The record is a 113-nucleotide RNA from Orthohepacivirus hominis, which matches "J750 non-coding RNA (containing SLSL761 and SL783)" in Rfam. Rfam classes the family as a cis-regulatory element.

RNA sequence: AUCCCUGUCGUGGGCGCCCCGCUCGGCGGCGUCGCCAGAGCUCUCGCGCAUGGCGUGAGAGUCCUGGAGGACGGGGUUAAUUUUGCAACAGGGAACUUACCCGGUUGCUCCUU
Numbered sequence: 001a002u003c004c005c006u007g008u009c010g011u012g013g014g015c016g017c018c019c020c021g022c023u024c025g026g027c028g029g030c031g032u033c034g035c036c037a038g039a040g041c042u043c044u045c046g047c048g049c050a051u052g053g054c055g056u057g058a059g060a061g062u063c064c065u066g067g068a069g070g071a072c073g074g075g076g077u078u079a080a081u082u083u084u085g086c087a088a089c090a091g092g093g094a095a096c097u098u099a100c101c102c103g104g105u106u107g108c109u110c111c112u113u
Base pairs, nucleotide, nucleotide: 001077002076003075004074005073007072008071009070013033014032015031016030017029018028019026020025035067036066037065038064040062041061042060043059044058045057046056047055048054049053085108086107087106088105089104091102092101093100
On this family, see Pirakitikulr et al., Mol Cell 2016: "The Coding Region of the HCV Genome Contains a Network of Regulatory RNA Structures". The organism belongs to Orthohepacivirus hominis, within Viruses.